Shown here is a 92-nucleotide sequence from Orthohepacivirus hominis, a member of the family "Hepatitis C virus stem-loop SL8670".
RNA sequence: AAAGCGGCGGCGUCGAGGAAGAUAGGGCGGCCCUGAGAGCCUUCACGGAGGCUAUGACCAGGUAUUCCGCCCCACCCGGCGACGCGCCACAG
Numbered sequence: 001a002a003a004g005c006g007g008c009g010g011c012g013u014c015g016a017g018g019a020a021g022a023u024a025g026g027g028c029g030g031c032c033c034u035g036a037g038a039g040c041c042u043u044c045a046c047g048g049a050g051g052c053u054a055u056g057a058c059c060a061g062g063u064a065u066u067c068c069g070c071c072c073c074a075c076c077c078g079g080c081g082a083c084g085c086g087c088c089a090c091a092g
Base pairs, nucleotide, nucleotide: 006087010083014079017076018075021072026071027070028069029067030066032062033061034060035059038053039052040051041050042049043048